Molybdenum/Tungsten riboswitch aptamer (Moco RNA motif): a 116-nucleotide RNA from Sporotomaculum syntrophicum. A search with the family's covariance model found it, with a score of 66 bits.
[Rfam]
RNA sequence: UUGAAUAACACGCUCCGAGUUAAAAUACCUAAAGCGUAAGCUAUGGCUUUUAACCAAUGGGUGCAGGGGGAAACAUCUGUGCCUCCCUUUUGGAAAGGAGAUUUUAUUUCAGAGAC
Number, nucleotide and partner (000 for none) at each position: 001u000002u000003g110004a109005a000006u000007a000008a000009c000010a000011c000012g000013c100014u099015c098016c097017g000018a000019g054020u053021u052022a051023a050024a049025a048026u000027a000028c046029c045030u000031a000032a000033a042034g041035c040036g000037u000038a000039a000040g035041c034042u033043a000044u000045g029046g028047c000048u025049u024050u023051u022052a021053a020054c019055c000056a000057a000058u000059g084060g083061g082062u081063g080064c079065a078066g077067g076068g000069g074070g000071a000072a000073a000074c069075a000076u067077c066078u065079g064080u063081g062082c061083c060084u059085c093086c092087c000088u000089u000090u000091u000092g086093g085094a000095a000096a000097g016098g015099a014100g013101a000102u000103u000104u000105u000106a000107u000108u000109u004110c003111a000112g000113a000114g000115a000116c000